[Rfam]
Record summary: The record is a 52-nucleotide RNA from Mesorhizobium sp., which matches "ffh sRNA" in Rfam. It is annotated as a small RNA. NCBI's taxonomy places the organism under Bacteria, Pseudomonadati, Alphaproteobacteria, Phyllobacteriaceae, Mesorhizobium. It scores 59 bits against the family's covariance model. The literature on the family includes a 2009 paper in BMC Genomics by Meyer et al., "Identification of candidate structured RNAs in the marine organism 'Candidatus Pelagibacter ubique'".
RNA sequence: GAGGUCAGAGGUCAACGCCCGACAGCGCUGUGCGCCCUCGGGCGCAAAGGUG
Numbered sequence: 001g002a003g004g005u006c007a008g009a010g011g012u013c014a015a016c017g018c019c020c021g022a023c024a025g026c027g028c029u030g031u032g033c034g035c036c037c038u039c040g041g042g043c044g045c046a047a048a049g050g051u052g
Stems, first nucleotide, its partner, number of pairs: 016044007025035004